[Rfam]
RNA: tRNA
RNA sequence: GGGCCGUUAGCUCAGCUGGCAGAGCAGGGGACUUUUAAUCCCAAGGCCCAGGGUUCGAACCCCUGACGGCCCA
Numbered sequence: 001g002g003g004c005c006g007u008u009a010g011c012u013c014a015g016c017u018g019g020c021a022g023a024g025c026a027g028g029g030g031a032c033u034u035u036u037a038a039u040c041c042c043a044a045g046g047c048c049c050a051g052g053g054u055u056c057g058a059a060c061c062c063c064u065g066a067c068g069g070c071c072c073a
Stems, first nucleotide, its partner, number of pairs: 001072007010025004028042004049065005